This 71-nucleotide sequence from Sphingobium sp. SYK-6 belongs to the Rfam family "terC RNA".
[Rfam]
RNA sequence: CUUGCGGGCCGGGCCCCUCUGGCGAGCAAGACGCAUCCCCCCUCGUCUGCUCGUGAUGUCGGACCGCAUCG
Numbered sequence: 001c002u003u004g005c006g007g008g009c010c011g012g013g014c015c016c017c018u019c020u021g022g023c024g025a026g027c028a029a030g031a032c033g034c035a036u037c038c039c040c041c042c043u044c045g046u047c048u049g050c051u052c053g054u055g056a057u058g059u060c061g062g063a064c065c066g067c068a069u070c071g
Base pairs, nucleotide, nucleotide: 006065007064009062010061011060012059022054023053024052025051026050027049028048